RNA sequence: GCGGUCUGAAAAUCACUUGUGGCCUCCUGUGGCCCCUGGUGAGGUAACUGUGCCGACAGCAUAGGGAACAUAAAGCUUACUGCCCGCGGUGGCGUGCGGGGAGUGAAACCCAUGUUCCCAUAGCC
Numbered sequence: 001g002c003g004g005u006c007u008g009a010a011a012a013u014c015a016c017u018u019g020u021g022g023c024c025u026c027c028u029g030u031g032g033c034c035c036c037u038g039g040u041g042a043g044g045u046a047a048c049u050g051u052g053c054c055g056a057c058a059g060c061a062u063a064g065g066g067a068a069c070a071u072a073a074a075g076c077u078u079a080c081u082g083c084c085c086g087c088g089g090u091g092g093c094g095u096g097c098g099g100g101g102a103g104u105g106a107a108a109c110c111c112a113u114g115u116u117c118c119c120a121u122a123g124c125c
Stems, first nucleotide, its partner, number of pairs: 006050001008048001010045001013042004021034004065118001067116005077106005085098003

Overview
This 125-nucleotide sequence from Nestor notabilis belongs to the Rfam family "Small nucleolar RNA ACA64". Its family is annotated with RNA processing and nucleolus in the Gene Ontology. A reference for the family is Schattner et al. (2006), "A computational screen for mammalian pseudouridylation guide H/ACA RNAs", RNA. The base pairs follow the family's consensus structure, which was predicted with WAR. It is annotated as an H/ACA-box small nucleolar RNA.